The record is a 92-nucleotide RNA sequence from a Thermoleophilia bacterium, which matches "Selenocysteine transfer RNA" in Rfam. A search with the family's covariance model found it, with a score of 56 bits. A reference for the family is Mizutani and Goto (2000), "Eukaryotic selenocysteine tRNA has the 9/4 secondary structure", FEBS Lett. Taxonomically the source falls in Thermoleophilia (Bacteria, Bacillati, Actinomycetota).
[Rfam]
RNA sequence: GGAGCGGCACGGGCCCGGUGGCCCAGCCGGUCUUCAAAAUCGGCCCGGUCGUGCAACCCACGGCUUGCUCGGUUCGACUCCGGGGCCGCUCC
Numbered sequence: 001g002g003a004g005c006g007g008c009a010c011g012g013g014c015c016c017g018g019u020g021g022c023c024c025a026g027c028c029g030g031u032c033u034u035c036a037a038a039a040u041c042g043g044c045c046c047g048g049u050c051g052u053g054c055a056a057c058c059c060a061c062g063g064c065u066u067g068c069u070c071g072g073u074u075c076g077a078c079u080c081c082g083g084g085g086c087c088g089c090u091c092c
Stems, first nucleotide, its partner, number of pairs: 001092008011024005026044006047065004069083004